[Rfam]
RNA sequence: ACCAAUUUCUGUUCCACUACGGAUCGUCGGGCACGUACCUGCCCGUGGAGAGGAAGU
Numbered sequence: 001a002c003c004a005a006u007u008u009c010u011g012u013u014c015c016a017c018u019a020c021g022g023a024u025c026g027u028c029g030g031g032c033a034c035g036u037a038c039c040u041g042c043c044c045g046u047g048g049a050g051a052g053g054a055a056g057u
Stems, first nucleotide, its partner, number of pairs: 010052001012050005028045006